[Rfam]
RNA: Small nucleolar RNA Z161/Z228
Organism: Rhododendron simsii
RNA sequence: AAGCCAGAUGACGAUUUUGGAUAAAAUUCUCACGACGGUCGUCUGAGACACCUUCAAAAGUGUCCUCUAUGAUGUACUGUUCCAAUAUUUCUGAUGGUU
Numbered sequence: 001a002a003g004c005c006a007g008a009u010g011a012c013g014a015u016u017u018u019g020g021a022u023a024a025a026a027u028u029c030u031c032a033c034g035a036c037g038g039u040c041g042u043c044u045g046a047g048a049c050a051c052c053u054u055c056a057a058a059a060g061u062g063u064c065c066u067c068u069a070u071g072a073u074g075u076a077c078u079g080u081u082c083c084a085a086u087a088u089u090u091c092u093g094a095u096g097g098u099u
Base pairs, nucleotide, nucleotide: 001099002098004096049062050061051060